[Rfam]
RNA: Small nucleolar RNA SNORA61
Organism: Cricetulus griseus
RNA sequence: ACCCUCCAGUUCCCUUUCCCAUCAGAUCUUGAUGCAGAUCUUGGUGGCUGGAAAGGAGGAAGAACACACUGAAGCUGGCUUCAUGGCGAUGUAGUCUGGUAUAGAGCAUUGAGUCAGAUUCAUACAUUC
Number, nucleotide and partner (000 for none) at each position: 001a000002c000003c059004c058005u057006c056007c055008a000009g000010u000011u000012c000013c000014c000015u000016u000017u000018c000019c047020c046021a045022u044023c043024a000025g040026a039027u038028c037029u000030u000031g000032a000033u000034g000035c000036a000037g028038a027039u026040c025041u000042u000043g023044g022045u021046g020047g019048c000049u000050g000051g000052a000053a000054a000055g007056g006057a005058g004059g003060a000061a000062g000063a000064a000065c000066a000067c000068a000069c000070u000071g000072a000073a000074g000075c117076u116077g115078g114079c113080u112081u111082c000083a000084u000085g000086g000087c000088g000089a000090u108091g107092u106093a000094g000095u000096c000097u000098g000099g000100u000101a000102u000103a000104g000105a000106g092107c091108a090109u000110u000111g081112a080113g079114u078115c077116a076117g075118a000119u000120u000121c000122a000123u000124a000125c000126a000127u000128u000129c000